[Rfam]
RNA sequence: GCCCUGACUGUAUGUAGGGCUCACUCUGGCAAAGACCAGGGCUGGGGAACAGGUCGUCCUCGGCAAAUUAUUCAUCAGGGCGCAUGACCCUCGCCCCGACUCCU
Numbered sequence: 001g002c003c004c005u006g007a008c009u010g011u012a013u014g015u016a017g018g019g020c021u022c023a024c025u026c027u028g029g030c031a032a033a034g035a036c037c038a039g040g041g042c043u044g045g046g047g048a049a050c051a052g053g054u055c056g057u058c059c060u061c062g063g064c065a066a067a068u069u070a071u072u073c074a075u076c077a078g079g080g081c082g083c084a085u086g087a088c089c090c091u092c093g094c095c096c097c098g099a100c101u102c103c104u
Stems, first nucleotide, its partner, number of pairs: 001020006025040005041064008075099002078096005

The record is a 104-nucleotide RNA, which matches "engA RNA" in Rfam. The sequence is in the family's curated seed alignment. By type it is a cis-regulatory element.